The record is a 64-nucleotide sequence, which matches "pemK RNA" in Rfam. The family's RNA type in Rfam is cis-regulatory element. It is one of the family's seed sequences.
RNA sequence: ACAAUGAUACUUCCGUAACUCGCGGCUCGGUCACAAAGAAGACGGAGAGGUUAGAUUCCUAUGA
Numbered sequence: 001a002c003a004a005u006g007a008u009a010c011u012u013c014c015g016u017a018a019c020u021c022g023c024g025g026c027u028c029g030g031u032c033a034c035a036a037a038g039a040a041g042a043c044g045g046a047g048a049g050g051u052u053a054g055a056u057u058c059c060u061a062u063g064a
Stems, first nucleotide, its partner, number of pairs: 012061001013025004026047003030043003048060003